Nucleotides: 071
Stems, first nucleotide, its partner, number of pairs: 010025004016062006032052002035049006
Number, partner (000 for none) and nucleotide at each position: 001000a002000c003000a004000a005000c006000c007000a008000u009000g010025g011024g012023u013022g014000a015000u016062g017061g018060a019059g020058u021057u022013c023012g024011c025010c026000c027000u028000a029000a030000c031000c032052g033051c034000c035049u036048g037047c038046g039045c040044g041000g042000c043000c044040u045039g046038c047037g048036c049035a050000a051033g052032c053000u054000g055000a056000u057021g058020a059019c060018u061017c062016c063000u064000a065000c066000g067000a068000c069000a070000u071000c

A member of the RNA family "Fluoride riboswitch aptamer (crcB RNA motif)" from Edaphobacter dinghuensis, 71 nucleotides long.
The source organism's lineage runs through Bacteria, Pseudomonadati, Acidobacteriota, Terriglobales and Edaphobacter.
A search with the family's covariance model found it, with a score of 51 bits.